[Rfam]
Shown here is a 111-nucleotide sequence from Aquamicrobium lusatiense, a member of the family "EcpR1". From the family's description: Perviously named SmelC291, SmrC10, or Sra33. According to its overproduction phenotype it was renamed Elongated Cell Phenotype RNA1. Induced by stress,EcpR1 negatively regulates cell cycle master regulatory genes dnaA and gcrA at post-transcriptional level by base pairing between its strongly conserved GC-rich loop and the target mRNAs. It's regulation is hfq-independent but requires RNase E to regulate dnaA. By type it is a small RNA. Taxonomically the source falls in Aquamicrobium (Bacteria, Pseudomonadati, Pseudomonadota, Phyllobacteriaceae). Pairs were carried over by alignment from the consensus structure, which was predicted with WAR.

RNA sequence: AUACCCCAUGUUUCUCAGGUCCGCCGCAUCUCCUGGGUUCCGUGGGGUUGGCCGGUCGGCCUUGGUAAUAGUGGCCUCCUCGUACCGCUGCCAUAGUCGACCGGCCCCCGG
Numbered sequence: 001a002u003a004c005c006c007c008a009u010g011u012u013u014c015u016c017a018g019g020u021c022c023g024c025c026g027c028a029u030c031u032c033c034u035g036g037g038u039u040c041c042g043u044g045g046g047g048u049u050g051g052c053c054g055g056u057c058g059g060c061c062u063u064g065g066u067a068a069u070a071g072u073g074g075c076c077u078c079c080u081c082g083u084a085c086c087g088c089u090g091c092c093a094u095a096g097u098c099g100a101c102c103g104g105c106c107c108c109c110g111g
Stems, first nucleotide, its partner, number of pairs: 003048008014037006050106011